[Rfam]
RNA sequence: ACUUCCUGAGCCGGAACGAAAAGCGCGAAGGGGAAAUCCUGAUGUGCUUUUGGCUUGUGGUUGUGAUGUUGUGUUUGCUAUUUGUUUAUUGUCUGCCUUUUCAGACACCGGUAGCUCAGCUACUUUUUCACUUCCUGUAUUUACCCUGUCUGUCUAUAGUGAUUUUGUAUAGCACCGCGUACUUGCGGUGCUUUUUUUU
Numbered sequence: 001a002c003u004u005c006c007u008g009a010g011c012c013g014g015a016a017c018g019a020a021a022a023g024c025g026c027g028a029a030g031g032g033g034a035a036a037u038c039c040u041g042a043u044g045u046g047c048u049u050u051u052g053g054c055u056u057g058u059g060g061u062u063g064u065g066a067u068g069u070u071g072u073g074u075u076u077g078c079u080a081u082u083u084g085u086u087u088a089u090u091g092u093c094u095g096c097c098u099u100u101u102c103a104g105a106c107a108c109c110g111g112u113a114g115c116u117c118a119g120c121u122a123c124u125u126u127u128u129c130a131c132u133u134c135c136u137g138u139a140u141u142u143a144c145c146c147u148g149u150c151u152g153u154c155u156a157u158a159g160u161g162a163u164u165u166u167g168u169a170u171a172g173c174a175c176c177g178c179g180u181a182c183u184u185g186c187g188g189u190g191c192u193u194u195u196u197u198u199u
Stems, first nucleotide, its partner, number of pairs: 009055004015051002021049006028043001031040003090107006110124006171192008

GcvB RNA: a 199-nucleotide sequence from Prodigiosinella confusarubida. Rfam describes the family as follows. The gcvB gene encodes a small untranslated RNA involved in expression of the dipeptide and oligopeptide transport systems in Escherichia coli. Included several unknown homologues in alignment (Bateman A pers obs). It base-pairs with SorC. This interaction triggers the degradation of GcvB by RNase E, alleviating the GcvB-mediated mRNA repression of other amino acid-related transport and metabolic genes. Rfam links the family to the GO terms mRNA binding and regulation of gene expression.